The record is a 138-nucleotide RNA sequence from Salvator merianae, which matches "U4 spliceosomal RNA" in Rfam. It is annotated as a spliceosomal small nuclear RNA.
[Rfam]
RNA sequence: GGGUUUGGGUUUGGGUUUGGGUUAGGGUUAGGGUUAUCUGAGGCGUGAUUAUUGCUAAUUGAAAACUUUUCCUAAUACCUCGCAAUGACAACUUGAAAUAUAGUUGGCAUUGGCAAUUUUUGACAGUCUUUUUAAUAA
Numbered sequence: 001g002g003g004u005u006u007g008g009g010u011u012u013g014g015g016u017u018u019g020g021g022u023u024a025g026g027g028u029u030a031g032g033g034u035u036a037u038c039u040g041a042g043g044c045g046u047g048a049u050u051a052u053u054g055c056u057a058a059u060u061g062a063a064a065a066c067u068u069u070u071c072c073u074a075a076u077a078c079c080u081c082g083c084a085a086u087g088a089c090a091a092c093u094u095g096a097a098a099u100a101u102a103g104u105u106g107g108c109a110u111u112g113g114c115a116a117u118u119u120u121u122g123a124c125a126g127u128c129u130u131u132u133u134a135a136u137a138a
Stems, first nucleotide, its partner, number of pairs: 021049004027044003031039003082114002085110003089106005129138002

The base pairs follow the family's consensus structure, which is taken from published work.